Shown here is an 89-nucleotide RNA sequence from Apostasia shenzhenica, a member of the family "Small nucleolar RNA snoR27". Rfam 15.1 lists 649 matches to the family in 212 species. Gene Ontology terms of the family: RNA processing and nucleolus. Rfam classes the family as a C/D-box small nucleolar RNA. On this family, see Brown et al., RNA 2001: "Multiple snoRNA gene clusters from Arabidopsis".
RNA sequence: UAUGGAUCAGUGAUGCAAUCAUAUUACUGCGUUAUCUUCCUGUAAUUGCCUAUAUGGCUUGAAGAUGCUUACAAAUGCUGAGAUCCAGU
Numbered sequence: 001u002a003u004g005g006a007u008c009a010g011u012g013a014u015g016c017a018a019u020c021a022u023a024u025u026a027c028u029g030c031g032u033u034a035u036c037u038u039c040c041u042g043u044a045a046u047u048g049c050c051u052a053u054a055u056g057g058c059u060u061g062a063a064g065a066u067g068c069u070u071a072c073a074a075a076u077g078c079u080g081a082g083a084u085c086c087a088g089u
Base pairs, nucleotide, nucleotide: 003087004086005085006084007083